This 144-nucleotide RNA from Clostridium sp. CAG:122 belongs to the Rfam family "Clostridiales-1 RNA". A search with the family's covariance model found it, with a score of 64 bits. The family has 194 seed sequences and 1,172 matches in Rfam 15.1.
RNA sequence: UGAUGCAAAGGUCAAAAGCAGAUAGCAAUGUAUGUUUACACACAUUGCUAUCUGCCGGCUUGACAAAUCAAACACUGACAAUGAUAUUUGAGGUGUUUGCAGGAUUGCGAAAAUUGCAAAGCAAUUUAGCAAUCUGUGGCAUCA
Numbered sequence: 001u002g003a004u005g006c007a008a009a010g011g012u013c014a015a016a017a018g019c020a021g022a023u024a025g026c027a028a029u030g031u032a033u034g035u036u037u038a039c040a041c042a043c044a045u046u047g048c049u050a051u052c053u054g055c056c057g058g059c060u061u062g063a064c065a066a067a068u069c070a071a072a073c074a075c076u077g078a079c080a081a082u083g084a085u086a087u088u089u090g091a092g093g094u095g096u097u098u099g100c101a102g103g104a105u106u107g108c109g110a111a112a113a114u115u116g117c118a119a120a121g122c123a124a125u126u127u128a129g130c131a132a133u134c135u136g137u138g139g140c141a142u143c144a
Stems, first nucleotide, its partner, number of pairs: 001144006011064004018055011030043002033040002069099008080088003102135007113125004